[Rfam]
Shown here is a 116-nucleotide RNA from Labedaea rhizosphaerae, a member of the family "SAM (S-adenosyl methionine) riboswitch aptamer". The match comes from Rfam's covariance-model search (112 bits). Taxonomically the source falls in Labedaea (Bacteria, Actinomycetota, Actinomycetes, Pseudonocardiaceae). About the family: SAM-IV is a mRNA element that regulates gene expression via direct sensing of S-adenosylmethionine (SAM or AdoMet). SAM-IV riboswitches share conserved nucleotide positions with the previously described SAM-I riboswitches sequence analysis and molecular recognition experiments suggest that SAM-I and SAM-IV riboswitches share similar ligand binding sites, but have different scaffolds.

RNA sequence: GGUCAUGAGCGCCAGCGUCAAGCCCCGGCUUGCUGGCCGGCAACCCUCCUACCGCGGUGGGGUGCCCCGGGUGAGGACCUGGUCCACCGCGCAGUGCGUGUGGGCAAGCGCGGACC
Number, nucleotide and partner (000 for none) at each position: 001g079002g078003u077004c076005a000006u000007g000008a000009g038010c000011g037012c036013c035014a034015g033016c032017g000018u000019c000020a000021a030022g029023c000024c000025c000026c000027g000028g000029c022030u021031u000032g016033c015034u014035g013036g012037c011038c009039g066040g065041c064042a000043a000044c062045c061046c060047u000048c057049c056050u000051a000052c000053c000054g000055c000056g049057g048058u000059g000060g046061g045062g044063u000064g041065c040066c039067c000068c000069g000070g000071g000072u000073g000074a000075g000076g004077a003078c002079c001080u000081g000082g105083u104084c103085c102086a101087c100088c000089g099090c098091g097092c096093a000094g000095u000096g092097c091098g090099u089100g087101u086102g085103g084104g083105c082106a000107a000108g000109c000110g000111c000112g000113g000114a000115c000116c000